[Rfam]
RNA sequence: UGUCUCCUCCAUCCUCCUUCUUUGGUGGAAUUCAGCGCAAUCCAGACCAGGAUUGCGUUUUUUUUA
Numbered sequence: 001u002g003u004c005u006c007c008u009c010c011a012u013c014c015u016c017c018u019u020c021u022u023u024g025g026u027g028g029a030a031u032u033c034a035g036c037g038c039a040a041u042c043c044a045g046a047c048c049a050g051g052a053u054u055g056c057g058u059u060u061u062u063u064u065u066a
Stems, first nucleotide, its partner, number of pairs: 008029006034059008
A member of the RNA family "Betaproteobacteria toxic small RNA" from Silvimonas terrae, 66 nucleotides long. The family has 51 seed sequences and 951 matches in Rfam 15.1. A search with the family's covariance model found it, with a score of 51 bits. Pairs were carried over by alignment from the consensus structure, which was predicted with WAR. On this family, see Kimelman et al., Genome Res 2012: "A vast collection of microbial genes that are toxic to bacteria". About the family: Overexpression in amino aid rich medium attenuates growth, suggesting role in repressing amino acid intake and metabolism.